[Rfam]
Rfam assigns this 140-nucleotide sequence from Callithrix jacchus to the family "U4 spliceosomal RNA". Rfam's curators write: U4 small nuclear RNA (U4 snRNA) is a component of the major U2-dependent spliceosome. On this family, see Zwieb, Nucleic Acids Res 1997: "The uRNA database". The match comes from Rfam's covariance-model search (100 bits).
RNA sequence: AGCUUUGCGCAGUGGCAGUAUCGUAGCCAAUAAGGUUUAUCCGAGGAGCAAUUAUUGCUAAUUGAAAACUUUUCCCAAUACCCUGCCGUGACGACUUGCAAUAUAAUCGGCAUUGGCAAUUUUUGACAGUCUACAGAGAC
Numbered sequence: 001a002g003c004u005u006u007g008c009g010c011a012g013u014g015g016c017a018g019u020a021u022c023g024u025a026g027c028c029a030a031u032a033a034g035g036u037u038u039a040u041c042c043g044a045g046g047a048g049c050a051a052u053u054a055u056u057g058c059u060a061a062u063u064g065a066a067a068a069c070u071u072u073u074c075c076c077a078a079u080a081c082c083c084u085g086c087c088g089u090g091a092c093g094a095c096u097u098g099c100a101a102u103a104u105a106a107u108c109g110g111c112a113u114u115g116g117c118a119a120u121u122u123u124u125g126a127c128a129g130u131c132u133a134c135a136g137a138g139a140c
Base pairs, nucleotide, nucleotide: 020052021051023049024048027046028045034042035041085117086116087115088113089112090111092109093108094107096105129140130139131138132137